[Rfam]
RNA sequence: UGAUGGCAGUGAUGAUUCCUCUAACGUUGCUGACCUGAUGUUCAAACGUGAGGGUGUGCAGUCACUACCUCAUCUGAGCCAUCU
Numbered sequence: 001u002g003a004u005g006g007c008a009g010u011g012a013u014g015a016u017u018c019c020u021c022u023a024a025c026g027u028u029g030c031u032g033a034c035c036u037g038a039u040g041u042u043c044a045a046a047c048g049u050g051a052g053g054g055u056g057u058g059c060a061g062u063c064a065c066u067a068c069c070u071c072a073u074c075u076g077a078g079c080c081a082u083c084u
Base pairs, nucleotide, nucleotide: 002083003082004081005080006079007078
Rfam assigns this 84-nucleotide sequence from Struthio camelus to the family "Small nucleolar RNA SNORD11B". A search with the family's covariance model found it, with a score of 82 bits. The literature on the family includes a 2006 paper in Nucleic Acids Res by Yang et al., "snoSeeker: an advanced computational package for screening of guide and orphan snoRNA genes in the human genome". The family's RNA type in Rfam is C/D-box small nucleolar RNA. Gene Ontology terms of the family: nucleolus and RNA processing. Its Rfam clan is "SNORD11 clan". The family's consensus secondary structure was predicted with WAR.